[Rfam]
RNA sequence: UGGCGCCCAACGUGGGGCUUGGAUACUGAGGCAGGAGUGAGGGAGACGUCGGGGCUUGGAUACUGAGGCAGGAGUGAGGGAGACGACGUGAAAAGGAACAGUUGGACAAAUUUUGAGACACAUCAGAGCCACUGUGGGAACCUUCCUCAGCAAAGAGAGCAAGGCGUGGGCCAAGGCUAUCUAGCAAGGCUAUCUGGCCCCCGCUUUAAGCCAAGGUUUUGGGCCAAAGUUGUAAGCCCCAGCUGCGAGCCAAGGCCGUGGUCCCCGGUUACCUGCCAGAGUUUCCAGGCCAAGGCUGCGGGCAAAAUGGAAAGCUGCCACCUCAGGCCUGUCAGCAGUUUUGAGAGGUAGCUGAGACUCAGUUGAACCUCAGAGAGGCUUUAAAGACAUGGGGAGUAAAGGUUAAAAGUACAGAUUUGUUUCAUUUUUUUGACUUUGUGAAAGAGACCUGUCCCU
Numbered sequence: 001u002g003g004c005g006c007c008c009a010a011c012g013u014g015g016g017g018c019u020u021g022g023a024u025a026c027u028g029a030g031g032c033a034g035g036a037g038u039g040a041g042g043g044a045g046a047c048g049u050c051g052g053g054g055c056u057u058g059g060a061u062a063c064u065g066a067g068g069c070a071g072g073a074g075u076g077a078g079g080g081a082g083a084c085g086a087c088g089u090g091a092a093a094a095g096g097a098a099c100a101g102u103u104g105g106a107c108a109a110a111u112u113u114u115g116a117g118a119c120a121c122a123u124c125a126g127a128g129c130c131a132c133u134g135u136g137g138g139a140a141c142c143u144u145c146c147u148c149a150g151c152a153a154a155g156a157g158a159g160c161a162a163g164g165c166g167u168g169g170g171c172c173a174a175g176g177c178u179a180u181c182u183a184g185c186a187a188g189g190c191u192a193u194c195u196g197g198c199c200c201c202c203g204c205u206u207u208a209a210g211c212c213a214a215g216g217u218u219u220u221g222g223g224c225c226a227a228a229g230u231u232g233u234a235a236g237c238c239c240c241a242g243c244u245g246c247g248a249g250c251c252a253a254g255g256c257c258g259u260g261g262u263c264c265c266c267g268g269u270u271a272c273c274u275g276c277c278a279g280a281g282u283u284u285c286c287a288g289g290c291c292a293a294g295g296c297u298g299c300g301g302g303c304a305a306a307a308u309g310g311a312a313a314g315c316u317g318c319c320a321c322c323u324c325a326g327g328c329c330u331g332u333c334a335g336c337a338g339u340u341u342u343g344a345g346a347g348g349u350a351g352c353u354g355a356g357a358c359u360c361a362g363u364u365g366a367a368c369c370u371c372a373g374a375g376a377g378g379c380u381u382u383a384a385a386g387a388c389a390u391g392g393g394g395a396g397u398a399a400a401g402g403u404u405a406a407a408a409g410u411a412c413a414g415a416u417u418u419g420u421u422u423c424a425u426u427u428u429u430u431u432g433a434c435u436u437u438g439u440g441a442a443a444g445a446g447a448c449c450u451g452u453c454c455c456u
Base pairs, nucleotide, nucleotide: 006031007030012026013025014024037084038083121159123156124155133149134148136146137145166202168200169199170198171197172196173195207383208382209381210379211378212377390432391431392430393429394428395427396426400418401417402416403415404414441456444453445452
The family of this 456-nucleotide RNA from Nannospalax galili is "Mason-Pfizer monkey virus packaging signal". The source organism's lineage runs through Eukaryota, Eumetazoa, Bilateria, Gnathostomata and Nannospalax. This family represents a group of sequences that are related to the Mason-Pfizer monkey virus (MPMV) packaging signal. The packaging signal is located in the 5' UTR and is required for specific RNA encapsidation. By type it is a cis-regulatory element. A reference for the family is Mustafa et al. (2004), "Mutational analysis of the predicted secondary RNA structure of the Mason-Pfizer monkey virus packaging signal", Virus Res. The family's consensus secondary structure was predicted with PFOLD.